[Rfam]
RNA sequence: GCCGACAUGGAUGUCGGAGAAGCUUUAAAUAUGCGAGUUUAUGCGGUGUAUAAACUCGGAGUAAGAAUUGUACAGGACGUAUAAUUCUUACUCGCC
Numbered sequence: 001g002c003c004g005a006c007a008u009g010g011a012u013g014u015c016g017g018a019g020a021a022g023c024u025u026u027a028a029a030u031a032u033g034c035g036a037g038u039u040u041a042u043g044c045g046g047u048g049u050a051u052a053a054a055c056u057c058g059g060a061g062u063a064a065g066a067a068u069u070g071u072a073c074a075g076g077a078c079g080u081a082u083a084a085u086u087c088u089u090a091c092u093c094g095c096c
Base pairs, nucleotide, nucleotide: 002017003016004015005014006013034058035057036056037055038054039053040052041051042050043049044048060092061091062090063089064088065087066086067085068084069083070082071081072080073079
Notes:
TD-2 RNA: a 96-nucleotide sequence from Treponema maltophilum. By type it is a small RNA. For this family Rfam cites "Identification of 22 candidate structured RNAs in bacteria using the CMfinder comparative genomics pipeline" (Weinberg et al., Nucleic Acids Res, 2007). It scores 54 bits against the family's covariance model. The base pairs follow the family's consensus structure, which is taken from published work. Taxonomically the source falls in Treponema maltophilum (Bacteria, Spirochaetia, Treponemataceae, Treponema).